[Rfam]
RNA sequence: CAGAUACUGGACCUGCCAACAUCAUCAGAGCAGCUGUCCUGUUGCACCUGUGACAUCGGGGCAGAGAGGAAGCAACUAUUUCUACACUCAGUGCUCAUAACAGUGAGUGCUAAGUAUGGUUUAUAGCCAGACAUUG
Numbered sequence: 001c002a003g004a005u006a007c008u009g010g011a012c013c014u015g016c017c018a019a020c021a022u023c024a025u026c027a028g029a030g031c032a033g034c035u036g037u038c039c040u041g042u043u044g045c046a047c048c049u050g051u052g053a054c055a056u057c058g059g060g061g062c063a064g065a066g067a068g069g070a071a072g073c074a075a076c077u078a079u080u081u082c083u084a085c086a087c088u089c090a091g092u093g094c095u096c097a098u099a100a101c102a103g104u105g106a107g108u109g110c111u112a113a114g115u116a117u118g119g120u121u122u123a124u125a126g127c128c129a130g131a132c133a134u135u136g
Base pairs, nucleotide, nucleotide: 005061007059008058009057010056024051026050027049028048076126082119083118084117087114088113092109093108094107095106096105097104
RNA: Small nucleolar RNA SNORA43
Organism: Odocoileus virginianus